A member of the RNA family "Soft rot Enterobacteriaceae Rev 39 5'UTR" from Serratia odorifera, 303 nucleotides long. From bacteria cultured under starvation conditions. The match comes from Rfam's covariance-model search (201 bits). It is annotated as a cis-regulatory element.

[Rfam]
Nucleotides: 303
Stems, first nucleotide, its partner, number of pairs: 005033001007031005013024001015022002037076005042070001044067002047064002050058001086257003090253002094248001100242002105236004110120003122142005128137003143162002146159004163192002170186005196231012209218003259289004264284001266279002
Number, partner (000 for none) and nucleotide at each position: 001000a002000a003000g004000u005033g006000u007031u008030g009029u010028c011027a012000c013024g014000c015022c016021g017000c018000g019000c020000g021016u022015g023000a024013c025000u026000a027011u028010g029009g030008u031007a032000c033005c034000u035000c036000u037076g038075u039074a040073g041072g042070u043000a044067u045066u046000a047064g048063u049000u050058c051000g052000a053000c054000a055000c056000g057000a058050g059000c060000a061000c062000a063048g064047u065000g066045a067044a068000c069000a070042a071000c072041c073040c074039u075038a076037u077000u078000a079000u080000g081000a082000a083000a084000g085000c086257c087256u088255u089000u090253g091252c092000c093000c094248a095000a096000g097000u098000g099000a100242u101241u102000a103000g104000c105236c106235u107234a108233g109000u110120c111119g112118u113000g114000a115000u116000u117000a118112g119111c120110g121000u122142g123141g124140u125139g126138g127000u128137g129136a130135u131000u132000a133000u134000u135130a136129u137128c138126c139125c140124a141123c142122c143162g144161u145000g146159c147158g148157g149156g150000g151000c152000u153000g154000c155000a156149c157148u158147u159146g160000g161144a162143c163192g164191a165000a166000g167000a168000a169000u170186g171185g172184c173183u174182u175000a176000g177000a178000a179000a180000a181000c182174a183173a184172g185171c186170c187000g188000g189000a190000a191164u192163c193000g194000c195000a196231a197230g198229a199228g200227a201226a202225c203224c204223c205222c206221c207220g208000c209218a210217c211216c212000g213000u214000c215000a216211g217210g218209u219000c220207c221206g222205g223204g224203g225202g226201u227200u228199u229198u230197u231196u232000a233108u234107u235106g236105g237000c238000a239000a240000g241101a242100g243000a244000a245000a246000a247000g248094u249000g250000a251000a252091g253090u254000g255088a256087g257086g258000a259289g260288c261287a262286g263000a264284g265000a266279a267278u268000g269000u270000a271000c272000a273000a274000c275000a276000g277000a278267a279266u280000a281000a282000a283000a284264u285000c286262c287261u288260g289259c290000a291000a292000a293000u294000c295000c296000c297000g298000c299000a300000a301000g302000a303000u